[Rfam]
RNA: Group II catalytic intron D1-D4-6
Organism: Skermanella aerolata
RNA sequence: AGAGUCCACUACGAUGAAGGAAUAGCGAUCCACAUCGGCCCCGAGCCGUGCGUCGGUCCCCGUGAGGGUACCGGCGAAGCGUCGGCAGGGGAUCGUGCAGGCCAGCCAUUGAGCCGCGAAAGUUUGUCACCCCGGACGCCGACGCGUUUCCCACCGCGGAAGGCAACACGGACGGAGGCGUUAGCGCGAGCCCCCGGACGGUCCGGCGAGGUCCAGGACCC
Numbered sequence: 001a002g003a004g005u006c007c008a009c010u011a012c013g014a015u016g017a018a019g020g021a022a023u024a025g026c027g028a029u030c031c032a033c034a035u036c037g038g039c040c041c042c043g044a045g046c047c048g049u050g051c052g053u054c055g056g057u058c059c060c061c062g063u064g065a066g067g068g069u070a071c072c073g074g075c076g077a078a079g080c081g082u083c084g085g086c087a088g089g090g091g092a093u094c095g096u097g098c099a100g101g102c103c104a105g106c107c108a109u110u111g112a113g114c115c116g117c118g119a120a121a122g123u124u125u126g127u128c129a130c131c132c133c134g135g136a137c138g139c140c141g142a143c144g145c146g147u148u149u150c151c152c153a154c155c156g157c158g159g160a161a162g163g164c165a166a167c168a169c170g171g172a173c174g175g176a177g178g179c180g181u182u183a184g185c186g187c188g189a190g191c192c193c194c195c196g197g198a199c200g201g202u203c204c205g206g207c208g209a210g211g212u213c214c215a216g217g218a219c220c221c
Stems, first nucleotide, its partner, number of pairs: 012037005019031003023189001025187002039091004045086004049081002051076007059068003110215001111213001113212003117208002132206006138164003143158004169200002173196003177192003